[Rfam]
A member of the RNA family "Small nucleolar RNA SNORA4" from Castor canadensis, 142 nucleotides long. By type it is an H/ACA-box small nucleolar RNA. Rfam links the family to the GO terms RNA processing and nucleolus. A search with the family's covariance model found it, with a score of 132 bits. Lineage of the source: Eukaryota > Glires > Rodentia > Castoridae > Castor.
RNA sequence: CUACCCAAAGUCAGUUUUAUUGGGGGGAGGUUUUUUAAUAACCUUUGCCAACUUGGGCUGUUUGGGAGAAUAAAUAUGACCACACACUCCACAGUGGGCUAUACAACUAAGUGUAGUUCAUUACUAUUUUGUGGCCUACAUU
Numbered sequence: 001c002u003a004c005c006c007a008a009a010g011u012c013a014g015u016u017u018u019a020u021u022g023g024g025g026g027g028a029g030g031u032u033u034u035u036u037a038a039u040a041a042c043c044u045u046u047g048c049c050a051a052c053u054u055g056g057g058c059u060g061u062u063u064g065g066g067a068g069a070a071u072a073a074a075u076a077u078g079a080c081c082a083c084a085c086a087c088u089c090c091a092c093a094g095u096g097g098g099c100u101a102u103a104c105a106a107c108u109a110a111g112u113g114u115a116g117u118u119c120a121u122u123a124c125u126a127u128u129u130u131g132u133g134g135c136c137u138a139c140a141u142u
Base pairs, nucleotide, nucleotide: 004065005064007062008061012060013059014058015057016056017055022052025049026048028046029043030042031041032040078136080134081133082132083131084130093122094121095120096119097118098117099116100115101114102113103112104111